The record is a 65-nucleotide sequence from Electrophorus electricus, which matches "MAT2A 3'UTR stem loop E" in Rfam. It is annotated as a cis-regulatory element. A reference for the family is Parker et al. (2011), "New families of human regulatory RNA structures identified by comparative analysis of vertebrate genomes", Genome Res.
RNA sequence: GUGGUCUUUGGUGGUUCCAAAGUGUACUACAGAAAAACUUUGGGUUCCAACCACAAGGAGGCUAC
Numbered sequence: 001g002u003g004g005u006c007u008u009u010g011g012u013g014g015u016u017c018c019a020a021a022g023u024g025u026a027c028u029a030c031a032g033a034a035a036a037a038c039u040u041u042g043g044g045u046u047c048c049a050a051c052c053a054c055a056a057g058g059a060g061g062c063u064a065c
Stems, first nucleotide, its partner, number of pairs: 001062001005059004011054005017043007024030002
Dot-bracket structure: (...((((..(((((.(((((((((...))......)))))))......))))).))))..)...